[Rfam]
RNA sequence: CGUUAGCCGACUGGAGAGUGGUUGGCCGGUAUCCCGGCGCAACCCACCGAAGGGGCAGGCCGGGCGCCGCGGGGCGCCGGACCGAAACUCUCAGGUACAAGGACAGGGGGAGAGGC
Number, nucleotide and partner (000 for none) at each position: 001c000002g000003u000004u000005a000006g000007c110008c109009g000010a000011c106012u105013g104014g000015a000016g000017a000018g000019u000020g044021g043022u042023u041024g000025g000026c000027c000028g000029g000030u000031a000032u000033c000034c000035c000036g000037g000038c000039g000040c000041a023042a022043c021044c020045c000046a096047c095048c094049g092050a091051a000052g000053g090054g089055g088056c000057a000058g000059g083060c000061c000062g000063g000064g000065c000066g000067c000068c000069g000070c000071g000072g000073g000074g000075c000076g000077c000078c000079g000080g000081a000082c000083c059084g000085a000086a000087a000088c055089u054090c053091u050092c049093a000094g048095g047096u046097a000098c000099a000100a000101g000102g000103a000104c013105a012106g011107g000108g000109g008110g007111a000112g000113a000114g000115g000116c000

Notes:
This 116-nucleotide RNA sequence from Azospira sp. I13 belongs to the Rfam family "Glycine riboswitch aptamer". Rfam links the family to the GO term glycine biosynthetic process. The base pairs follow the family's consensus structure. For this family Rfam cites "A glycine-dependent riboswitch that uses cooperative binding to control gene expression" (Mandal et al., Science, 2004).